A member of the RNA family "Glutamine riboswitch aptamer (glnA leader)", 52 nucleotides long. The family's consensus secondary structure is taken from published work.
[Rfam]
RNA sequence: UACGUUCAUCCCUCCGGGGACGCAAGUAGGACAGAGUCCGAAGGAACGGGAG
Number, nucleotide and partner (000 for none) at each position: 001u000002a000003c048004g047005u046006u045007c044008a000009u020010c019011c018012c017013u000014c000015c000016g000017g012018g011019g010020a009021c000022g000023c049024a000025a000026g000027u000028a000029g039030g038031a037032c000033a000034g000035a000036g000037u031038c030039c029040g000041a000042a000043g000044g007045a006046a005047c004048g003049g023050g000051a000052g000